Burkholderia RNA 14: a 173-nucleotide sequence from Pararobbsia alpina.
RNA sequence: GUCGGCAUCGUCACCGUCCAGCCUCAGCCGGUCGAAGUGAUCGCGGAUCUGCCCGGCCGGACGUCUGCCUAUCUGGUCGCGCAAGUGCGCGCUCGUGUCGACGGCAUCGUGCUGCGGCGGGACUUUGUCGAAGGCGCGAAGGUGAAGGCCGGCCAGCGCCUCUACCAGAUCGA
Number, nucleotide and partner (000 for none) at each position: 001g000002u000003c000004g053005g052006c051007a050008u047009c046010g000011u043012c000013a041014c000015c039016g038017u000018c037019c000020a000021g000022c000023c031024u030025c000026a000027g000028c000029c000030g024031g023032u000033c000034g000035a000036a000037g018038u016039g015040a000041u013042c000043g011044c000045g000046g009047a008048u000049c000050u007051g006052c005053c004054c000055g150056g149057c148058c147059g000060g000061a143062c142063g000064u000065c000066u000067g137068c136069c000070u134071a000072u133073c000074u131075g000076g000077u000078c000079g092080c091081g090082c089083a000084a000085g000086u000087g000088c000089g082090c081091g080092c079093u000094c121095g000096u000097g118098u000099c116100g115101a000102c114103g113104g112105c111106a110107u000108c000109g000110u106111g105112c104113u103114g102115c100116g099117g000118c097119g000120g000121g094122a000123c000124u000125u000126u000127g000128u000129c000130g000131a074132a000133g072134g070135c000136g068137c067138g000139a000140a000141g000142g062143u061144g000145a000146a000147g058148g057149c056150c055151g000152g000153c000154c000155a000156g000157c172158g171159c000160c168161u167162c000163u000164a000165c000166c000167a161168g160169a000170u000171c158172g157173a000

The family has 3 seed sequences and 98 matches in Rfam 15.1. Rfam's curators write: Co-purified with Hfq, expression confirmed by Northern blot. It is annotated as a small RNA.